The record is a 99-nucleotide sequence from Xiashengella succiniciproducens, which matches "TPP riboswitch aptamer (THI element)" in Rfam. Rfam's curators write: Vitamin B(1) in its active form thiamin pyrophosphate (TPP) is an essential coenzyme that is synthesised by coupling of pyrimidine and thiazole moieties in bacteria. The previously detected thiamin-regulatory element, thi box was extended, resulting in a new, highly conserved RNA secondary structure, the THI element, which is widely distributed in eubacteria and also occurs in some archaea. Analysis of operon structures identified a large number of new candidate thiamin-regulated genes, mostly transporters, in various prokaryotic organisms. The THI element is a riboswitch that directly binds to TPP to regulate gene expression through a variety of mechanisms in archaea, bacteria and eukaryotes. through a variety of mechanisms in archaea, bacteria and eukaryotes. Tandem TPP riboswitches have been reported where both TPP riboswitches respond independently to TPP. The structure of TPP riboswitch has been reported for Escherichia coli and Arabidopsis thaliana.
[Rfam]
Nucleotides: 099
Stems, first nucleotide, its partner, number of pairs: 006087005011050004016044001017036007055080003061074004
Number, partner (000 for none) and nucleotide at each position: 001000g002000a003000a004000c005000a006087u007086c008085g009084u010083u011050g012049g013048g014047g015000g016044u017036g018035c019034c020033u021032g022031u023030u024000u025000g026000u027000c028000c029000a030023a031022a032021c033020a034019g035018g036017c037000u038000g039000a040000g041000a042000u043000a044016a045000u046000a047014c048013c049012c050011c051000g052000g053000a054000a055080c056079c057078u058000g059000a060000u061074c062073u063072g064071u065000u066000u067000a068000a069000u070000a071064a072063c073062a074061g075000c076000g077000g078057a079056g080055g081000a082000a083010a084009a085008c086007g087006a088000g089000a090000a091000a092000g093000a094000c095000a096000a097000u098000u099000g
Its family is annotated with thiamine pyrophosphate binding in the Gene Ontology.